The family of this 129-nucleotide sequence from Nicotiana tabacum is "MIR6152 microRNA precursor family".
RNA sequence: UAGACAGAUUAUUGUAUUCGACUAUAUUCGCGAUAUGUAUUUGUAAAUACAGUAACGUAAAUGACGCAAUUCAUGGUCUAUUCAGCUGUUUUUAAACAGAUAGUGAAUCAAUUAACAUAAUAGACUCCU
Numbered sequence: 001u002a003g004a005c006a007g008a009u010u011a012u013u014g015u016a017u018u019c020g021a022c023u024a025u026a027u028u029c030g031c032g033a034u035a036u037g038u039a040u041u042u043g044u045a046a047a048u049a050c051a052g053u054a055a056c057g058u059a060a061a062u063g064a065c066g067c068a069a070u071u072c073a074u075g076g077u078c079u080a081u082u083c084a085g086c087u088g089u090u091u092u093u094a095a096a097c098a099g100a101u102a103g104u105g106a107a108u109c110a111a112u113u114a115a116c117a118u119a120a121u122a123g124a125c126u127c128c129u
Base pairs, nucleotide, nucleotide: 003127004126009123010122011121012120013119014118015117017115018114020113021112023110026108027107028106029105030104031103034098036096037091039089041088